RNA sequence: GGUACGCACGGCGACUGGCGUACGGGGAAGCGACCCCGGGGGAGCCGUGCGCGGCAGACCACACGAGGGUGCCGCCCGCCUGGGCACCCCAC
Numbered sequence: 001g002g003u004a005c006g007c008a009c010g011g012c013g014a015c016u017g018g019c020g021u022a023c024g025g026g027g028a029a030g031c032g033a034c035c036c037c038g039g040g041g042g043a044g045c046c047g048u049g050c051g052c053g054g055c056a057g058a059c060c061a062c063a064c065g066a067g068g069g070u071g072c073c074g075c076c077c078g079c080c081u082g083g084g085c086a087c088c089c090c091a092c
Base pairs, nucleotide, nucleotide: 003053005051006050007049008048009047010046011045012044015041016040017080018079019078020077024037025036026035027034069087070086071085072084073083
A member of the RNA family "ZMP/ZTP riboswitch aptamer (pfl RNA motif)" from Streptomyces lavendofoliae, 92 nucleotides long. The base pairs follow the family's consensus structure, which is taken from published work. It scores 48 bits against the family's covariance model. The organism belongs to Streptomyces, within Bacteria. Rfam links the family to the GO terms regulation of purine nucleotide biosynthetic process and one-carbon metabolic process.